About this RNA:
The family of this 357-nucleotide part of an RNA from Chloroflexus aurantiacus is "Bacterial small subunit ribosomal RNA". A reference for the family is Yusupov et al. (2001), "Crystal structure of the ribosome at 5.5 A resolution", Science.
RNA sequence: GGCGUAAAGGGCGCGCAGGCGGUGGGCUGCGUCGGCGCUGAAAGCGCCCCGCUUAACGGGGCGAGGCGCGCCGAUACGAGUCCACUCGAGGCAAGCAGAGGGUGGCGGAAUUCCGGGUGGAGCGGUGAAAUGCGUAGAGAUCCGGAGGAACGCCGGUGGGGAAGCCGGCCACCUGGGCUUGACCUGACGCUGCGGCGCGACAGCGUGGGGAGCAAACCGGAUUAGAUACCCGGGUAGUCCACGCCGUAAACGAUGCCGGCUCGGCGUCUGGCGCACGUUGGUGUGCUGGGUGCCUUAGCUCACGCGGUAAGCCGGCCGCCUGGGGACUACGAGCGCAAGCUUAAAACUCAAAGGAAU
Numbered sequence: 001g002g003c004g005u006a007a008a009g010g011g012c013g014c015g016c017a018g019g020c021g022g023u024g025g026g027c028u029g030c031g032u033c034g035g036c037g038c039u040g041a042a043a044g045c046g047c048c049c050c051g052c053u054u055a056a057c058g059g060g061g062c063g064a065g066g067c068g069c070g071c072c073g074a075u076a077c078g079a080g081u082c083c084a085c086u087c088g089a090g091g092c093a094a095g096c097a098g099a100g101g102g103u104g105g106c107g108g109a110a111u112u113c114c115g116g117g118u119g120g121a122g123c124g125g126u127g128a129a130a131u132g133c134g135u136a137g138a139g140a141u142c143c144g145g146a147g148g149a150a151c152g153c154c155g156g157u158g159g160g161g162a163a164g165c166c167g168g169c170c171a172c173c174u175g176g177g178c179u180u181g182a183c184c185u186g187a188c189g190c191u192g193c194g195g196c197g198c199g200a201c202a203g204c205g206u207g208g209g210g211a212g213c214a215a216a217c218c219g220g221a222u223u224a225g226a227u228a229c230c231c232g233g234g235u236a237g238u239c240c241a242c243g244c245c246g247u248a249a250a251c252g253a254u255g256c257c258g259g260c261u262c263g264g265c266g267u268c269u270g271g272c273g274c275a276c277g278u279u280g281g282u283g284u285g286c287u288g289g290g291u292g293c294c295u296u297a298g299c300u301c302a303c304g305c306g307g308u309a310a311g312c313c314g315g316c317c318g319c320c321u322g323g324g325g326a327c328u329a330c331g332a333g334c335g336c337a338a339g340c341u342u343a344a345a346a347c348u349c350a351a352a353g354g355a356a357u
Base pairs, nucleotide, nucleotide: 001320002319003318009317011198012197013196014195016192018191019190020189022085023084024083025082026081027080028079030078031077032074033073034072035071036070037069038068045063046062047061048060049059050058051057089185090184091183092181093180094179095178096177100174101173102172103171104170105169106168107151111147112146113145114144115143116142117141118140122133123132124131159166160165203244204243205242206241207240208239212238213237217233218232219231220230255316256315257314258313259312260311263294264293265292266291267290268289269288270287271286272285273284274283298305299304322349323348324347331342332341333340334339